A member of the RNA family "mir-310 microRNA precursor family" from Drosophila kikkawai, 72 nucleotides long. The family has 23 seed sequences and 60 matches in Rfam 15.1. NCBI's taxonomy places the organism under Eukaryota, Protostomia, Ecdysozoa, Insecta, Sophophora. The family's consensus secondary structure was predicted with RNAalifold. Clan: mir-92 microRNA precursor clan.

[Rfam]
RNA sequence: CCAUGAUUCGGACGGGAUCUGUGUCAAUACUUGCUUUUUAUUCGUAUUGCACACAUACCGGCCUUAUAAUAU
Numbered sequence: 001c002c003a004u005g006a007u008u009c010g011g012a013c014g015g016g017a018u019c020u021g022u023g024u025c026a027a028u029a030c031u032u033g034c035u036u037u038u039u040a041u042u043c044g045u046a047u048u049g050c051a052c053a054c055a056u057a058c059c060g061g062c063c064u065u066a067u068a069a070u071a072u
Base pairs, nucleotide, nucleotide: 003070004069006067007066010063011062013060014059017056020053021052023050025049026048027047028046029045030044